[Rfam]
RNA sequence: GAUGUGGAACAUCCGGAAUCGCUGUAGCGCCGUGAUGAAAGCUCAACCCUGUCUGACUGAUGACCGCUGGAGCCGCCU
Number, nucleotide and partner (000 for none) at each position: 001g000002a078003u000004g076005u075006g074007g000008a000009a000010c000011a000012u000013c000014c000015g000016g000017a000018a000019u000020c000021g000022c000023u000024g000025u000026a000027g000028c000029g000030c000031c000032g000033u000034g000035a000036u000037g000038a000039a000040a000041g000042c000043u000044c000045a000046a000047c000048c000049c000050u000051g000052u000053c000054u000055g000056a000057c000058u000059g000060a000061u000062g000063a000064c000065c000066g000067c000068u000069g000070g000071a000072g000073c000074c006075g005076c004077c000078u002
Shown here is a 78-nucleotide RNA from Aythya fuligula, a member of the family "Small nucleolar RNA MBII-202". Its family is annotated with nucleolus and RNA processing in the Gene Ontology. The family has 30 seed sequences and 745 matches in Rfam 15.1. It scores 40 bits against the family's covariance model. By type it is a C/D-box small nucleolar RNA.